Rfam assigns this 58-nucleotide RNA sequence from Heyndrickxia oleronia to the family "Ribosomal protein L13 leader". The base pairs follow the family's consensus structure, which was predicted with CMfinder. For this family Rfam cites "Diverse mechanisms for regulating ribosomal protein synthesis in Escherichia coli" (Zengel and Lindahl, Prog Nucleic Acid Res Mol Biol, 1994). The match comes from Rfam's covariance-model search (48 bits). The family's RNA type in Rfam is cis-regulatory leader. Rfam describes the family as follows. This family is a putative r-protein leader autoregulatory structure found in B. subtilis and other low-GC Gram-positive bacteria. Its family is annotated with regulation of gene expression in the Gene Ontology. The organism belongs to Heyndrickxia, within Bacteria.

RNA sequence: GGUAUGUUAUUUAACCCCACAAAUAAGCCCCGGAAACUUAUCUGUGUAAAAAUAAAUA
Numbered sequence: 001g002g003u004a005u006g007u008u009a010u011u012u013a014a015c016c017c018c019a020c021a022a023a024u025a026a027g028c029c030c031c032g033g034a035a036a037c038u039u040a041u042c043u044g045u046g047u048a049a050a051a052a053u054a055a056a057u058a
Stems, first nucleotide, its partner, number of pairs: 008058006018046004024040004